[Rfam]
RNA sequence: AGGGUUGUAGUUAAUUAUAACAUUUGAUUUGCAUUCAAAAAGUAUUGAAUAUUCAAUCUACCUUA
Numbered sequence: 001a002g003g004g005u006u007g008u009a010g011u012u013a014a015u016u017a018u019a020a021c022a023u024u025u026g027a028u029u030u031g032c033a034u035u036c037a038a039a040a041a042g043u044a045u046u047g048a049a050u051a052u053u054c055a056a057u058c059u060a061c062c063u064u065a
Stems, first nucleotide, its partner, number of pairs: 001064005007058001010021004023039005044057004